[Rfam]
RNA sequence: GCGCCGGCUUUAGCUCAGUAGCUACUUCGAUUUCACUCAAAUCCGUCUGGCUGCGCGUUCGCGUCCAGUUAGGUACGGGCGCUGCCCGGCGUUUUG
Numbered sequence: 001g002c003g004c005c006g007g008c009u010u011u012a013g014c015u016c017a018g019u020a021g022c023u024a025c026u027u028c029g030a031u032u033u034c035a036c037u038c039a040a041a042u043c044c045g046u047c048u049g050g051c052u053g054c055g056c057g058u059u060c061g062c063g064u065c066c067a068g069u070u071a072g073g074u075a076c077g078g079g080c081g082c083u084g085c086c087c088g089g090c091g092u093u094u095u096g
Stems, first nucleotide, its partner, number of pairs: 002091006013080004018076003026063001028061003
Rfam assigns this 96-nucleotide RNA from Chiloscyllium punctatum to the family "Vault RNA". It scores 50 bits against the family's covariance model. Rfam classes the family as a non-coding RNA gene. The base pairs follow the family's consensus structure, which is taken from published work.